[Rfam]
Background: Rfam assigns this 126-nucleotide RNA sequence from Salarias fasciatus to the family "Small nucleolar RNA SNORD22". Gene Ontology terms of the family: RNA processing and nucleolus. A reference for the family is Tycowski et al. (1996), "A mammalian gene with introns instead of exons generating stable RNA products", Nature. The organism belongs to Salarias, within Eukaryota. The match comes from Rfam's covariance-model search (60 bits). By type it is a C/D-box small nucleolar RNA.
RNA sequence: CCUUGAUGAUGACUCCCGCACGCGUCUUACGCCUCGCGUCAACGCCAGACCUGAAAAGGUGAACCCACUGGUGUUGCCUUGGCAAUAAGGUGACGGUUUGUUGGGGUUACCAACAGUCUGAGAGGA
Numbered sequence: 001c002c003u004u005g006a007u008g009a010u011g012a013c014u015c016c017c018g019c020a021c022g023c024g025u026c027u028u029a030c031g032c033c034u035c036g037c038g039u040c041a042a043c044g045c046c047a048g049a050c051c052u053g054a055a056a057a058g059g060u061g062a063a064c065c066c067a068c069u070g071g072u073g074u075u076g077c078c079u080u081g082g083c084a085a086u087a088a089g090g091u092g093a094c095g096g097u098u099u100g101u102u103g104g105g106g107u108u109a110c111c112a113a114c115a116g117u118c119u120g121a122g123a124g125g126a
Stems, first nucleotide, its partner, number of pairs: 001125004